[Rfam]
RNA sequence: AGUAGUAACAGCUGAGAUACGUGAAAAUCGUAUCCGCCGAAAGGCCAAGGGUUUCUUGGCAAUACGUCGUUAGCCAAGAGUUAGUCGGUCCUAAGUGCAUUCUUAAACGUCGUGCACGAAAGGGAAACAGAUUUAUAUUUCUGUACUUGGAGCCUAAGAAAAUUAUCGGCAACGAAAGAUGAAUUCGAGACGAAAGUGGAUAGCUCGAACAGGACUGUCGUUCCUGUUUAAAUGUAUACCUCCGGGAAGUGCCUUUACGGCGAGAACCGGACUAAAGCAUGAAUAGCCACCCUAUUGUGGGAGGUUCGAGGCAACUCCAAUUUCCAUUGAAAAUCGCAUUCAUAAUGAAUCUCCAAACCGUACCAAGAACCGACACAGGUGUGCCAAGGUGAGAAGCCUAAGGCGUGU
Dot-bracket structure: ...............((((((.......))))))((((....(..(..((...((((((...((......)).))))))......(((.((...((((((.(......)..))))))....))...(((((........)))))..((((((.................................(((...((((.((((..(((((((((((.........))))))...((((.....(((((.....(((.....))).....))))).....))))...........(......).......))).))...)))).)))).........)))..............)))))).)))..)).....((......)).)..)..(((.......)))..))))...

Rfam assigns this 408-nucleotide part of an RNA from Promethearchaeum syntrophicum to the family "Archaeal large subunit ribosomal RNA". Taxonomically the source falls in Promethearchaeum (Archaea, Promethearchaeia, Promethearchaeales, Promethearchaeaceae).